[Rfam]
RNA sequence: AAAUUAUGUCUCUAGGGUUCCGGUUUGGCUGCUGUGGUCAAAUGGCUGGUCCAAGAGAGGCAGGUUAGUGAUGGCGUUGGUCAAGGACUGGCCCCUAAGGGUCAUCGCUAACUACACGGCGGGAUAAAAGCCCGGGAGGA
Numbered sequence: 001a002a003a004u005u006a007u008g009u010c011u012c013u014a015g016g017g018u019u020c021c022g023g024u025u026u027g028g029c030u031g032c033u034g035u036g037g038u039c040a041a042a043u044g045g046c047u048g049g050u051c052c053a054a055g056a057g058a059g060g061c062a063g064g065u066u067a068g069u070g071a072u073g074g075c076g077u078u079g080g081u082c083a084a085g086g087a088c089u090g091g092c093c094c095c096u097a098a099g100g101g102u103c104a105u106c107g108c109u110a111a112c113u114a115c116a117c118g119g120c121g122g123g124a125u126a127a128a129a130g131c132c133c134g135g136g137a138g139g140a
Stems, first nucleotide, its partner, number of pairs: 007062006015052002020049002022046001023043008063113013115135001117138001121133003
This 140-nucleotide RNA sequence from Phormidium tenue belongs to the Rfam family "Guanidine-I riboswitch aptamer". NCBI's taxonomy places the organism under Bacteria, Cyanophyceae, Oscillatoriales, Oscillatoriaceae, Phormidium tenue. The literature on the family includes a 2004 paper in Proc Natl Acad Sci U S A by Barrick et al., "New RNA motifs suggest an expanded scope for riboswitches in bacterial genetic control". The match comes from Rfam's covariance-model search (81 bits).